RNA sequence: ACAGGAGAGGUUCGCGAACUCCCUCUAUAAAAAACUAGCAGGCC
Numbered sequence: 001a002c003a004g005g006a007g008a009g010g011u012u013c014g015c016g017a018a019c020u021c022c023c024u025c026u027a028u029a030a031a032a033a034a035c036u037a038g039c040a041g042g043c044c
Base pairs, nucleotide, nucleotide: 006026007025008024009023010022016036